[Rfam]
Background:
Rfam assigns this 55-nucleotide RNA from Microcebus murinus to the family "Antizyme RNA frameshifting stimulation element". By type it is a frameshift element. The family's consensus secondary structure is taken from published work. On this family, see Ivanov et al., J Mol Biol 2004: "Identification of a new antizyme mRNA +1 frameshifting stimulatory pseudoknot in a subset of diverse invertebrates and its apparent absence in intermediate species". This family represents a structural element which is found in antizyme mRNA and is known to promote frameshifting. Antizyme genes have have two partially overlapping open reading frames, the second, which encodes the functional protein requires +1 translational frameshifting. This frameshift is stimulated by a pseudoknot present 3' of the frameshift site in the antizyme mRNA. The frameshifting efficiency is dependent on the level of polyamines in the cell, when the polyamine concentration is high frameshifting is more likely to occur which leads to an increase in the quantity of functional antizyme produced. The functional antizyme acts to reduce ornithine decarboxylase (ODC) activity which leads to a drop in polyamines present in the cell. The match comes from Rfam's covariance-model search (49 bits). Lineage of the source: Eukaryota > Chordata > Strepsirrhini > Lemuriformes > Microcebus.

RNA sequence: UAAUGCCCCUCACCCACUGUCAAAAAUCCCCUGUGGGUGAGGGCUGGAAGGGAUC
Numbered sequence: 001u002a003a004u005g006c007c008c009c010u011c012a013c014c015c016a017c018u019g020u021c022a023a024a025a026a027u028c029c030c031c032u033g034u035g036g037g038u039g040a041g042g043g044c045u046g047g048a049a050g051g052g053a054u055c
Base pairs, nucleotide, nucleotide: 007043008042009041010040011039013037014036015035016034017033026054027053028052029051030050